This 191-nucleotide RNA from Otolemur garnettii belongs to the Rfam family "U2 spliceosomal RNA". A search with the family's covariance model found it, with a score of 132 bits. The literature on the family includes a 1997 paper in Nucleic Acids Res by Zwieb, "The uRNA database". The family's consensus secondary structure is taken from published work. Rfam's curators write: U2 is a small nuclear RNA (snRNA) component of the spliceosome (involved in pre-mRNA splicing). Complementary binding between U2 snRNA (in an area lying towards the 5' end but 3' to hairpin I) and the branchpoint sequence (BPS) of the intron results the bulging out of an unpaired adenosine, on the BPS, which initiates a nucleophilic attack at the intronic 5' splice site, thus starting the first of two transesterification reactions that mediate splicing.

RNA sequence: AUGGGGUUUUGGCCUUUUGGCUAAGAUCAAGUACAGUACCUGCUCUUAUCAGUUUAAUAUCUGAUAUAUCCUCUAUCUGAGGACAAUAUAUUACAUGAAUCUUGGGAGCAAGGAGUUGAAAUAGAAGGUUGCUUUUUCCUCUCCAUGCACGGACCUGGUAGUGUAGUACUUCCAGGAAAGGUGCACCCCCU
Numbered sequence: 001a002u003g004g005g006g007u008u009u010u011g012g013c014c015u016u017u018u019g020g021c022u023a024a025g026a027u028c029a030a031g032u033a034c035a036g037u038a039c040c041u042g043c044u045c046u047u048a049u050c051a052g053u054u055u056a057a058u059a060u061c062u063g064a065u066a067u068a069u070c071c072u073c074u075a076u077c078u079g080a081g082g083a084c085a086a087u088a089u090a091u092u093a094c095a096u097g098a099a100u101c102u103u104g105g106g107a108g109c110a111a112g113g114a115g116u117u118g119a120a121a122u123a124g125a126a127g128g129u130u131g132c133u134u135u136u137u138c139c140u141c142u143c144c145a146u147g148c149a150c151g152g153a154c155c156u157g158g159u160a161g162u163g164u165a166g167u168a169c170u171u172c173c174a175g176g177a178a179a180g181g182u183g184c185a186c187c188c189c190c191u
Stems, first nucleotide, its partner, number of pairs: 007026003011022004047066006069083005112144004118138002124135004147184004154176005
Taxonomically the source falls in Otolemur (Eukaryota, Dipnotetrapodomorpha, Tetrapoda, Strepsirrhini). The family's RNA type in Rfam is spliceosomal small nuclear RNA.